The record is a 132-nucleotide sequence from Carlito syrichta, which matches "Small nucleolar RNA SNORA41" in Rfam. The literature on the family includes a 2001 paper in EMBO J by Huttenhofer et al., "RNomics: an experimental approach that identifies 201 candidates for novel, small, non-messenger RNAs in mouse". It is annotated as an H/ACA-box small nucleolar RNA. Its family is annotated with RNA processing and nucleolus in the Gene Ontology.
[Rfam]
RNA sequence: AUCCACAGCUACUGGUCUGCAGCUGUUCUUGUGGUAGCAGUUGUGACAUUCUUCUGUGGGAAAGAAAUGUUUAAUACAAUUAAACAACUCUUUCUUAGCAAAACAGAAGGUGACAGACAUUUAAAAAUAAAA
Numbered sequence: 001a002u003c004c005a006c007a008g009c010u011a012c013u014g015g016u017c018u019g020c021a022g023c024u025g026u027u028c029u030u031g032u033g034g035u036a037g038c039a040g041u042u043g044u045g046a047c048a049u050u051c052u053u054c055u056g057u058g059g060g061a062a063a064g065a066a067a068u069g070u071u072u073a074a075u076a077c078a079a080u081u082a083a084a085c086a087a088c089u090c091u092u093u094c095u096u097a098g099c100a101a102a103a104c105a106g107a108a109g110g111u112g113a114c115a116g117a118c119a120u121u122u123a124a125a126a127a128u129a130a131a132a
Base pairs, nucleotide, nucleotide: 003059004058005057006056018045019044020043021042022041023040024039025038073121074120088112090110091109092108093107094106095105